[Rfam]
RNA sequence: UUAUGGAGACAUUGGGGGCGGAGGGAGUACUGUACCGGACAUGACUUCUGGGUAUACCAUGUGGCCUGUGAUUUUUUCCCCCAUACCUGUUA
Numbered sequence: 001u002u003a004u005g006g007a008g009a010c011a012u013u014g015g016g017g018g019c020g021g022a023g024g025g026a027g028u029a030c031u032g033u034a035c036c037g038g039a040c041a042u043g044a045c046u047u048c049u050g051g052g053u054a055u056a057c058c059a060u061g062u063g064g065c066c067u068g069u070g071a072u073u074u075u076u077u078c079c080c081c082c083a084u085a086c087c088u089g090u091u092a
Stems, first nucleotide, its partner, number of pairs: 004089001006087001008086001011084002015082004035070001036068002039062004
RNA: NoRC associated RNA, pRNA
Organism: Mus spicilegus